[Rfam]
RNA sequence: GGGUGAUAAUUUCAUCUUCUCUUUUUUGCUUUUAUAUUUUGGUACAGCUGAUUCAUGUAAAAAAAGGGUAUACCCAAAAUAUACACAAAACCAUCAGUGUAAAUGCAUUUUUUUCAAUGUAUAGUUAGGGUGGAUAUUAAAUGGUUGUGAAAAGAGUUGCUUUUUAGUCAUGAUAGUAGCAUAUGCUCGAGUAAGUUCUACAGAUUAAAAUUU
Dot-bracket structure: .((.(((......))).)).............(((((.................)))))......(((....)))..(((((.(((...........................................))).)))))....((((.(((((((((...))))))..........((((.((.(((....))).)).))))...))).)))).

Notes: Rfam assigns this 213-nucleotide RNA sequence from Listeria monocytogenes to the family "Listeria sRNA rliF". The base pairs follow the family's consensus structure, which was predicted with WAR. It is annotated as a small RNA. On this family, see Mandin et al., Nucleic Acids Res 2007: "Identification of new noncoding RNAs in Listeria monocytogenes and prediction of mRNA targets".